[Rfam]
RNA sequence: GCACUCGUGAGGGUGUAGCUGAAGGAAGUGUGUAUCAAAACCUUGGCUCGACGAACAGAAACCUGAUACCACGGCUCAACAAGUGGAUGAGAUGCCCACACAAAUCAAAGUUCAAAAACUUAUUGGGUAAAUCAGGAUACUAAAAGAGGAAAGCUAGUUGU
Numbered sequence: 001g002c003a004c005u006c007g008u009g010a011g012g013g014u015g016u017a018g019c020u021g022a023a024g025g026a027a028g029u030g031u032g033u034a035u036c037a038a039a040a041c042c043u044u045g046g047c048u049c050g051a052c053g054a055a056c057a058g059a060a061a062c063c064u065g066a067u068a069c070c071a072c073g074g075c076u077c078a079a080c081a082a083g084u085g086g087a088u089g090a091g092a093u094g095c096c097c098a099c100a101c102a103a104a105u106c107a108a109a110g111u112u113c114a115a116a117a118a119c120u121u122a123u124u125g126g127g128u129a130a131a132u133c134a135g136g137a138u139a140c141u142a143a144a145a146g147a148g149g150a151a152a153g154c155u156a157g158u159u160g161u
Base pairs, nucleotide, nucleotide: 001016002015003014004013005012006011028161029160030159036153042146043145044144046141048139062136063135064134065133066132067131074128075127076126078124079123081121082120083119084118085113086112087111088110091106092105093104

Overview: The family of this 161-nucleotide sequence from Pilibacter termitis is "Group II catalytic intron D1-D4-3". Rfam describes the family as follows. Group II introns are found in rRNA, tRNA and mRNA of organelles in fungi, plants and protists, and also in mRNA in bacteria. The organism belongs to Pilibacter, within Bacteria. A search with the family's covariance model found it, with a score of 93 bits. The pairing is the family consensus, mapped onto this sequence.